[Rfam]
RNA sequence: AAGAAAGGCUUCUAUCGUGAGGGGUACCUGUGGGGCAACUCAACUGCUCUUCAUGCAGAAAUGACAUCAAGAGACUUUGGAAGCAUAAUUUUUUGGUACCUUGGCAGCUGGUCAUUGUUGGUCCCAGUCCCAGU
Number, nucleotide and partner (000 for none) at each position: 001a000002a000003g000004a000005a000006a000007g000008g084009c083010u082011u081012c080013u026014a025015u024016c023017g000018u000019g000020a000021g000022g000023g016024g015025u014026a013027c055028c000029u053030g052031u000032g050033g049034g048035g047036c046037a045038a000039c000040u000041c000042a000043a000044c000045u037046g036047c035048u034049c033050u032051u000052c030053a029054u000055g027056c079057a078058g077059a076060a000061a000062u073063g000064a000065c000066a000067u000068c000069a000070a000071g000072a000073g062074a000075c000076u059077u058078u057079g056080g012081a011082a010083g009084c008085a000086u000087a000088a000089u000090u000091u000092u000093u000094u000095g000096g000097u000098a000099c000100c000101u000102u132103g131104g130105c000106a000107g128108c127109u126110g125111g124112u000113c000114a122115u121116u120117g000118u000119u000120g116121g115122u114123c000124c111125c110126a109127g108128u107129c000130c104131c103132a102133g000134u000
RNA: U11 spliceosomal RNA